[Rfam]
RNA sequence: UCACCCAUGUAAGACCUGCUUUGUCUUAGAUGAGUAACACGGGGGUUAGAUGAAUUCUCUCAAAAACCUGAAGUACUGGCAUACUAUUCCUUGCUUCGGAUCCUGUCGGGAGAGACAUUA
Dot-bracket structure: ..((((.(((.....(.................)....))).))))........(.(((((......(((((((...((.(......)))..)))))))........))))).)......
RNA: Small nucleolar RNA SNORA26